[Rfam]
RNA sequence: UUUUUUAGAGCUGUGGUUGAAAGUCGAAGCCAGUCGCAGGCGAAACGAUCCACAUAAGGUAAACUUUGUUUACUGAGCAUGGUGCGGUUUUUGGAGUAAGUCCUGCCUUAACCUUAAUUGGUGAUAAUAAUAAGAGAAGGGUAGUAGUGAGGGAUAAAGUUCCUGAGCAAACCUCUCAGCAGGCGAGUGUGGGGGCAAAGACCAGGUCAGUCUAAAGAA
Numbered sequence: 001u002u003u004u005u006u007a008g009a010g011c012u013g014u015g016g017u018u019g020a021a022a023g024u025c026g027a028a029g030c031c032a033g034u035c036g037c038a039g040g041c042g043a044a045a046c047g048a049u050c051c052a053c054a055u056a057a058g059g060u061a062a063a064c065u066u067u068g069u070u071u072a073c074u075g076a077g078c079a080u081g082g083u084g085c086g087g088u089u090u091u092u093g094g095a096g097u098a099a100g101u102c103c104u105g106c107c108u109u110a111a112c113c114u115u116a117a118u119u120g121g122u123g124a125u126a127a128u129a130a131u132a133a134g135a136g137a138a139g140g141g142u143a144g145u146a147g148u149g150a151g152g153g154a155u156a157a158a159g160u161u162c163c164u165g166a167g168c169a170a171a172c173c174u175c176u177c178a179g180c181a182g183g184c185g186a187g188u189g190u191g192g193g194g195g196c197a198a199a200g201a202c203c204a205g206g207u208c209a210g211u212c213u214a215a216a217g218a219a
Stems, first nucleotide, its partner, number of pairs: 001219009011210003014204005027190001029188001030040001032090001033088006049082002057074002061070002080197001102183005107134004138176004147168002153161003

The family of this 219-nucleotide RNA sequence is "raiA RNA". Pairs were carried over by alignment from the consensus structure, which is taken from published work. The sequence is in the family's curated seed alignment. The family's RNA type in Rfam is riboswitch.